[Rfam]
mir-9261 microRNA precursor family: an 81-nucleotide RNA from Pipistrellus kuhlii.
The base pairs follow the family's consensus structure, which was predicted with RNAalifold.
Rfam 15.1 lists 196 matches to the family in 3 species.
Its family is annotated with miRNA-mediated post-transcriptional gene silencing and RISC complex in the Gene Ontology.
The source organism's lineage runs through Eukaryota, Craniata, Gnathostomata, Teleostomi and Pipistrellus.
RNA sequence: AACAAUUUGUCCCGAGUCCCUUGGCGUUUUAAAAAAUCGGGACUUUUUUAAAACGCCAAGGGACUCGGGACAAAUUGUUAA
Numbered sequence: 001a002a003c004a005a006u007u008u009g010u011c012c013c014g015a016g017u018c019c020c021u022u023g024g025c026g027u028u029u030u031a032a033a034a035a036a037u038c039g040g041g042a043c044u045u046u047u048u049u050a051a052a053a054c055g056c057c058a059a060g061g062g063a064c065u066c067g068g069g070a071c072a073a074a075u076u077g078u079u080a081a
Stems, first nucleotide, its partner, number of pairs: 001079035